[Rfam]
RNA: TPP riboswitch aptamer (THI element)
RNA sequence: UAUGGGAGCUAGGGGUGCCGUAAGGCUGAGAGAGAUUUUAUAUCUUAACCCUUUGAACCUGAUGUGGUUAGGACCACCGUAGGGAAGCGCGAAUUAUAAUCG
Numbered sequence: 001u002a003u004g005g006g007a008g009c010u011a012g013g014g015g016u017g018c019c020g021u022a023a024g025g026c027u028g029a030g031a032g033a034g035a036u037u038u039u040a041u042a043u044c045u046u047a048a049c050c051c052u053u054u055g056a057a058c059c060u061g062a063u064g065u066g067g068u069u070a071g072g073a074c075c076a077c078c079g080u081a082g083g084g085a086a087g088c089g090c091g092a093a094u095u096a097u098a099a100u101c102g
Stems, first nucleotide, its partner, number of pairs: 006090001008088003011052004017026003033045004058083004064077004